[Rfam]
The record is an 82-nucleotide RNA sequence from Aeromonas hydrophila, which matches "RpsF leader" in Rfam.
NCBI's taxonomy places the organism under Bacteria, Gammaproteobacteria, Aeromonadaceae, Aeromonas hydrophila, Aeromonas hydrophila subsp. hydrophila.
It is annotated as a cis-regulatory leader.

RNA sequence: UCUAAACACCAUUAUGUUCCUUGCCUCCGAGGUUUGGCUGCACCUGGGCGGAGGCUGAAUUAAUCCGUAAGGAGCUAAAAUG
Numbered sequence: 001u002c003u004a005a006a007c008a009c010c011a012u013u014a015u016g017u018u019c020c021u022u023g024c025c026u027c028c029g030a031g032g033u034u035u036g037g038c039u040g041c042a043c044c045u046g047g048g049c050g051g052a053g054g055c056u057g058a059a060u061u062a063a064u065c066c067g068u069a070a071g072g073a074g075c076u077a078a079a080a081u082g
Stems, first nucleotide, its partner, number of pairs: 016075007023055006031044003